[Rfam]
RNA sequence: ACCACAUUCGGACAGUCGAUUUACCGAGCAAUAUCACCCGCUCGGUGGAAGAUCUUCCCUUUGUCGA
Numbered sequence: 001a002c003c004a005c006a007u008u009c010g011g012a013c014a015g016u017c018g019a020u021u022u023a024c025c026g027a028g029c030a031a032u033a034u035c036a037c038c039c040g041c042u043c044g045g046u047g048g049a050a051g052a053u054c055u056u057c058c059c060u061u062u063g064u065c066g067a
Stems, first nucleotide, its partner, number of pairs: 004064003010058003015053003020049010

Rfam assigns this 67-nucleotide RNA sequence from Bombyx mori to the family "mir-2774 microRNA precursor family". A reference for the family is Liu et al. (2010), "MicroRNAs of Bombyx mori identified by Solexa sequencing", BMC Genomics. Taxonomically the source falls in Bombyx (Eukaryota, Lepidoptera, Glossata, Neolepidoptera). Rfam links the family to the GO terms RISC complex and miRNA-mediated post-transcriptional gene silencing.